This 157-nucleotide RNA from Glycine soja belongs to the Rfam family "MIR4371 microRNA precursor family". The family is grouped with related families in Rfam's "MIR4387 microRNA precursor clan". The family's consensus secondary structure was predicted with RNAalifold. A search with the family's covariance model found it, with a score of 126 bits. Rfam 15.1 lists 321 matches to the family in 4 species.
RNA sequence: CAGUUAAGUGAUAAUGUAGCAGACGGAGUGUCAUGUCGUCAAGCCUAAUCACUGACACAUCAUUGUUACGCCAUUAAAGGUGAUGACAUGACAAUGUGUGUUAGUGAUAAGACAUGAUGAUGUGACACUCCGUCCGCUACGUCAUUACUUAAUAGAA
Numbered sequence: 001c002a003g004u005u006a007a008g009u010g011a012u013a014a015u016g017u018a019g020c021a022g023a024c025g026g027a028g029u030g031u032c033a034u035g036u037c038g039u040c041a042a043g044c045c046u047a048a049u050c051a052c053u054g055a056c057a058c059a060u061c062a063u064u065g066u067u068a069c070g071c072c073a074u075u076a077a078a079g080g081u082g083a084u085g086a087c088a089u090g091a092c093a094a095u096g097u098g099u100g101u102u103a104g105u106g107a108u109a110a111g112a113c114a115u116g117a118u119g120a121u122g123u124g125a126c127a128c129u130c131c132g133u134c135c136g137c138u139a140c141g142u143c144a145u146u147a148c149u150u151a152a153u154a155g156a157a
Base pairs, nucleotide, nucleotide: 001155003153004152005151006150007149008148009147010146011145012144014142015141016140017139018138019137020136022134023133024132025131026130027129028128029127030126031125032124033123034122035121036120037119038118039117040116041115043113045111046110048108049107050106051105052104054102055101056100057099058098070087072085073084074083